[Rfam]
RNA: Rhizobiales sRNA Atu_C7
Organism: Rhizobium sp. BK376
Nucleotides: 147
Stems, first nucleotide, its partner, number of pairs: 054105008070093004075088002112142009123131001
Number, partner (000 for none) and nucleotide at each position: 001000c002000u003000a004000a005000u006000u007000c008000a009000a010000a011000g012000u013000g014000c015000a016000u017000c018000g019000a020000c021000g022000g023000g024000c025000g026000u027000u028000u029000c030000g031000a032000g033000u034000u035000u036000g037000u038000u039000u040000c041000c042000c043000u044000g045000g046000g047000u048000u049000c050000u051000c052000c053000u054105g055104g056103c057102g058101c059100a060099u061098c062000c063000u064000g065000a066000a067000g068000c069000c070093g071092c072091a073090g074000a075088c076087g077000c078000u079000u080000c081000c082000u083000c084000c085000c086000u087076c088075g089000c090073c091072u092071g093070u094000u095000g096000g097000u098061g099060a100059u101058g102057c103056g104055c105054c106000c107000g108000c109000c110000u111000u112142g113141c114140c115139u116138c117137g118136c119135u120134c121000a122000u123131c124000g125000c126000g127000a128000u129000a130000u131123g132000c133000a134120g135119a136118g137117c138116g139115a140114g141113g142112c143000u144000u145000u146000u147000u